Arthropod 7SK RNA: a 252-nucleotide RNA sequence from Phyllotreta striolata.
By type it is a non-coding RNA gene.
The organism belongs to Phyllotreta, within Eukaryota.
Its Rfam clan is "7SK clan".
A reference for the family is Gruber et al. (2008), "Arthropod 7SK RNA", Mol Biol Evol.

[Rfam]
RNA sequence: GGAGGUGCGUGUCAGUGAUGGCACAGCUGAACAUCGAUCGCUUGUAUUCUUUAGCAGAUCUGCUCAGUCACGUGCAGUCACAAAGGUCGAUUCAGUCACCAAUGGACCUGCCGAUGUCUUGUCGCACGGUUAGUCAUCCAAUGGUUACUUGAACGUCCGCAAUUUUCCAAAUUUGGGGUUCACGGAUGGGUAUUUUCAAUUUAUAACACCUCCAAUAACGGCACUGCGGAUUUGGCAGUCUGCCAUUUUUUG
Numbered sequence: 001g002g003a004g005g006u007g008c009g010u011g012u013c014a015g016u017g018a019u020g021g022c023a024c025a026g027c028u029g030a031a032c033a034u035c036g037a038u039c040g041c042u043u044g045u046a047u048u049c050u051u052u053a054g055c056a057g058a059u060c061u062g063c064u065c066a067g068u069c070a071c072g073u074g075c076a077g078u079c080a081c082a083a084a085g086g087u088c089g090a091u092u093c094a095g096u097c098a099c100c101a102a103u104g105g106a107c108c109u110g111c112c113g114a115u116g117u118c119u120u121g122u123c124g125c126a127c128g129g130u131u132a133g134u135c136a137u138c139c140a141a142u143g144g145u146u147a148c149u150u151g152a153a154c155g156u157c158c159g160c161a162a163u164u165u166u167c168c169a170a171a172u173u174u175g176g177g178g179u180u181c182a183c184g185g186a187u188g189g190g191u192a193u194u195u196u197c198a199a200u201u202u203a204u205a206a207c208a209c210c211u212c213c214a215a216u217a218a219c220g221g222c223a224c225u226g227c228g229g230a231u232u233u234g235g236c237a238g239u240c241u242g243c244c245a246u247u248u249u250u251u252g
Stems, first nucleotide, its partner, number of pairs: 001213007015081005027067003032062002036060004040055003220244003223239005
Dot-bracket structure: (((((((.......(((((.......(((..((..(((((((..........))).))))))..))).........))))).............................................................................................................................)))))))......((((((((.......)))))..)))........